[Rfam]
RNA sequence: GGGCAGGAUAGGUAUUUGCUAUACCGCCACAAGUGGCGAUCUAGCAAAUACUGCAACUUAUUCGGCCUGGCGGCCUCAACGUAUCCUGUUCUGUUUCAGGAG
Numbered sequence: 001g002g003g004c005a006g007g008a009u010a011g012g013u014a015u016u017u018g019c020u021a022u023a024c025c026g027c028c029a030c031a032a033g034u035g036g037c038g039a040u041c042u043a044g045c046a047a048a049u050a051c052u053g054c055a056a057c058u059u060a061u062u063c064g065g066c067c068u069g070g071c072g073g074c075c076u077c078a079a080c081g082u083a084u085c086c087u088g089u090u091c092u093g094u095u096u097c098a099g100g101a102g
Stems, first nucleotide, its partner, number of pairs: 001091009012051006019044003025038005056082002064075003
RNA: traJ-II RNA
Organism: Marinobacterium stanieri